The family of this 352-nucleotide RNA from Citreicella sp. C3M06 is "Alphaproteobacteria transfer-messenger RNA".
Rfam describes the family as follows. Bacterial tmRNA, also known as 10Sa RNA or SsrA, is named for its dual tRNA and mRNA-like properties.
For this family Rfam cites "Phylogenetic analysis of tmRNA secondary structure" (Williams and Bartel, RNA, 1996).
By type it is a non-coding RNA gene.
The source organism's lineage runs through Bacteria, Pseudomonadati, Pseudomonadota, Rhodobacterales and Citreicella.
[Rfam]
RNA sequence: CCCCUUUGAAAGCGCUCAAAGGUUGCCUAUAUUCAAAUCGUUCCCUCGGGAACUAUGGGCAUAAACGCGCAUGUAAUAAGCGGAUCGGACCCGGGGGCGGUACCCGGCGGCUCCACCAAUCACCCUUUCUUUGGAGGGUCAUGGGGCCGAAAUAGGAUCGACGAACGUGUAAAGAUGUAGCUUUGCUUCGGUGAGAUACCACCGUUAUCGGUUCAUAACGCAUAGUUGCAAAUGACAAUCAUGCUCCGGUGGCCCUCGCCGCGUAAGCGGUUCGGGUUAUCGAAACCUUAAGUCCUUGCGCUUAGCGGCGUAAGGCGGGGUCCGCAGGUACCUGGCAACAGAAACCUGCACC
Numbered sequence: 001c002c003c004c005u006u007u008g009a010a011a012g013c014g015c016u017c018a019a020a021g022g023u024u025g026c027c028u029a030u031a032u033u034c035a036a037a038u039c040g041u042u043c044c045c046u047c048g049g050g051a052a053c054u055a056u057g058g059g060c061a062u063a064a065a066c067g068c069g070c071a072u073g074u075a076a077u078a079a080g081c082g083g084a085u086c087g088g089a090c091c092c093g094g095g096g097g098c099g100g101u102a103c104c105c106g107g108c109g110g111c112u113c114c115a116c117c118a119a120u121c122a123c124c125c126u127u128u129c130u131u132u133g134g135a136g137g138g139u140c141a142u143g144g145g146g147c148c149g150a151a152a153u154a155g156g157a158u159c160g161a162c163g164a165a166c167g168u169g170u171a172a173a174g175a176u177g178u179a180g181c182u183u184u185g186c187u188u189c190g191g192u193g194a195g196a197u198a199c200c201a202c203c204g205u206u207a208u209c210g211g212u213u214c215a216u217a218a219c220g221c222a223u224a225g226u227u228g229c230a231a232a233u234g235a236c237a238a239u240c241a242u243g244c245u246c247c248g249g250u251g252g253c254c255c256u257c258g259c260c261g262c263g264u265a266a267g268c269g270g271u272u273c274g275g276g277u278u279a280u281c282g283a284a285a286c287c288u289u290a291a292g293u294c295c296u297u298g299c300g301c302u303u304a305g306c307g308g309c310g311u312a313a314g315g316c317g318g319g320g321u322c323c324g325c326a327g328g329u330a331c332c333u334g335g336c337a338a339c340a341g342a343a344a345c346c347u348g349c350a351c352c
Stems, first nucleotide, its partner, number of pairs: 040053005057188005067181002069178004081167002085164003091107005108149007189204004195214002198212003318333004324349006
Dot-bracket structure: .......................................(((((....)))))...(((((.....((((((........((..(((...(((((.......)))))(((((((............................)))))))............))).)).......)))).))..)))))((((..[[.[[[)))).....]]]]].......................................................................................................[[[[..((((((]]]]..........))))))...